[Rfam]
RNA: Pyrrolysine insertion sequence mttB
Organism: Puniceispirillum marinum
RNA sequence: GCAACGGAAAGUAAAAUUCCUGAUGCACAAAGUGGCUAUGAAAAAUGUUUGACCGUAAGUCAAACUGUGCAAGCUGGCGCAAAUAUUGUGACGCAAGCUUGUGGCGCACAG
Numbered sequence: 001g002c003a004a005c006g007g008a009a010a011g012u013a014a015a016a017u018u019c020c021u022g023a024u025g026c027a028c029a030a031a032g033u034g035g036c037u038a039u040g041a042a043a044a045a046u047g048u049u050u051g052a053c054c055g056u057a058a059g060u061c062a063a064a065c066u067g068u069g070c071a072a073g074c075u076g077g078c079g080c081a082a083a084u085a086u087u088g089u090g091a092c093g094c095a096a097g098c099u100u101g102u103g104g105c106g107c108a109c110a111g
Base pairs, nucleotide, nucleotide: 003012033062034061035060077109079107080106